[Rfam]
RNA sequence: AACUUAUUCAGAGCAAGUGGAGGGAUUUGGCCCUAUGAAACUUCAGCAACCUACCGUUGGCAAGGUGCUAAUUCCAACUCGAAAGAGAUAGAUGAGUC
Numbered sequence: 001a002a003c004u005u006a007u008u009c010a011g012a013g014c015a016a017g018u019g020g021a022g023g024g025a026u027u028u029g030g031c032c033c034u035a036u037g038a039a040a041c042u043u044c045a046g047c048a049a050c051c052u053a054c055c056g057u058u059g060g061c062a063a064g065g066u067g068c069u070a071a072u073u074c075c076a077a078c079u080c081g082a083a084a085g086a087g088a089u090a091g092a093u094g095a096g097u098c
Base pairs, nucleotide, nucleotide: 002097003096004095005094006093007092008091013044015043016042017041018040022033023032024031027077028076029075030074045069046068047067048066050065051064052062054060055059073090078087079086080085

This 98-nucleotide sequence from Aerococcus sp. HMSC10H05 belongs to the Rfam family "SAM riboswitch aptamer (S box leader)". A search with the family's covariance model found it, with a score of 71 bits. Rfam describes the family as follows. The SAM riboswitch is found upstream of a number of genes which code for proteins involved in methionine or cysteine biosynthesis in Gram-positive bacteria. Taxonomically the source falls in Aerococcus (Bacteria, Bacillati, Bacilli, Lactobacillales).